[Rfam]
RNA sequence: CCAGAUGGCCGGAUGGUCGCUUUGCCCCGUACGGGGUCGAGAGGAAAGUCCGGGCUCCACGGAAACACGGUGCCGGAUAACGUCCGGCGGGGGCGACCCUAGGGAAAGUGCCACAGAAAGCAAACCGCCAGGCCUGCGGGACUGGUAAGGGUGAAAGGGUGCGGUAAGAGCGCACCGCGACCUUGGCAACAAGGGCGGCACGGUAAACCCCACCGGGAGCAAAACCAAAUAGGGACGGCACGCUUUCGCAAGAAAGCAGGCAGGUUUUCGGGCUGCCGUCCGGGUCGGUUGCUAGAGGCGUUCGGUAACGGGCGUCCCAGAUGAAUGACCAUCCAGCGUCCAUUUACGGAUGGAUGCGGACAGAACCCGGCUUACAGGCCAUCUGGCGGC
Numbered sequence: 001c002c003a004g005a006u007g008g009c010c011g012g013a014u015g016g017u018c019g020c021u022u023u024g025c026c027c028c029g030u031a032c033g034g035g036g037u038c039g040a041g042a043g044g045a046a047a048g049u050c051c052g053g054g055c056u057c058c059a060c061g062g063a064a065a066c067a068c069g070g071u072g073c074c075g076g077a078u079a080a081c082g083u084c085c086g087g088c089g090g091g092g093g094c095g096a097c098c099c100u101a102g103g104g105a106a107a108g109u110g111c112c113a114c115a116g117a118a119a120g121c122a123a124a125c126c127g128c129c130a131g132g133c134c135u136g137c138g139g140g141a142c143u144g145g146u147a148a149g150g151g152u153g154a155a156a157g158g159g160u161g162c163g164g165u166a167a168g169a170g171c172g173c174a175c176c177g178c179g180a181c182c183u184u185g186g187c188a189a190c191a192a193g194g195g196c197g198g199c200a201c202g203g204u205a206a207a208c209c210c211c212a213c214c215g216g217g218a219g220c221a222a223a224a225c226c227a228a229a230u231a232g233g234g235a236c237g238g239c240a241c242g243c244u245u246u247c248g249c250a251a252g253a254a255a256g257c258a259g260g261c262a263g264g265u266u267u268u269c270g271g272g273c274u275g276c277c278g279u280c281c282g283g284g285u286c287g288g289u290u291g292c293u294a295g296a297g298g299c300g301u302u303c304g305g306u307a308a309c310g311g312g313c314g315u316c317c318c319a320g321a322u323g324a325a326u327g328a329c330c331a332u333c334c335a336g337c338g339u340c341c342a343u344u345u346a347c348g349g350a351u352g353g354a355u356g357c358g359g360a361c362a363g364a365a366c367c368c369g370g371c372u373u374a375c376a377g378g379c380c381a382u383c384u385g386g387c388g389g390c
Stems, first nucleotide, its partner, number of pairs: 001386010011375001012333007020041003024037005046373003050370005055219004063268003068215005073087005088102001089100004103210002108208002110204003125150002127146005133140002158176006177199001178197002181194005223290004233281006260273002297316008
The family of this 390-nucleotide RNA from Insolitispirillum peregrinum is "Bacterial RNase P class A". It scores 324 bits against the family's covariance model. NCBI's taxonomy places the organism under Bacteria, Pseudomonadati, Alphaproteobacteria, Novispirillaceae, Insolitispirillum. The family's consensus secondary structure is taken from published work.